This 117-nucleotide RNA sequence from Fukomys damarensis belongs to the Rfam family "Small nucleolar RNA SNORA32". The match comes from Rfam's covariance-model search (104 bits). NCBI's taxonomy places the organism under Eukaryota, Opisthokonta, Eumetazoa, Hystricomorpha, Fukomys. Rfam describes the family as follows. ACA32 is a member of the H/ACA class of snoRNA that guide the sites of modification of uridines to pseudouridines. Rfam 15.1 lists 615 matches to the family in 234 species. Pairs were carried over by alignment from the consensus structure, which was predicted with RNAfold.
[Rfam]
RNA sequence: UGUUUGUUACCAUGGCUUUUAGAAUGAAGUUCCUCAUUUGCUGUGGACAUGACCAUCGAAAAAUUUCUCACUUGGUUUUCUGUUACCUUGCUAGCAAUCAACCUGUUGGGAACAUAC
Numbered sequence: 001u002g003u004u005u006g007u008u009a010c011c012a013u014g015g016c017u018u019u020u021a022g023a024a025u026g027a028a029g030u031u032c033c034u035c036a037u038u039u040g041c042u043g044u045g046g047a048c049a050u051g052a053c054c055a056u057c058g059a060a061a062a063a064u065u066u067c068u069c070a071c072u073u074g075g076u077u078u079u080c081u082g083u084u085a086c087c088u089u090g091c092u093a094g095c096a097a098u099c100a101a102c103c104u105g106u107u108g109g110g111a112a113c114a115u116a117c
Stems, first nucleotide, its partner, number of pairs: 004052004010046003026041001028039002067110004074103004081096003